RNA: MAT2A 3'UTR stem loop C
RNA sequence: GCUUUCUGAACAGCUUGUGUAACUACAGAGAAACCAGUUUCCUUCAGAGAAU
Dot-bracket structure: (.(((((((..((((.((((....))......)).))))....))))))).)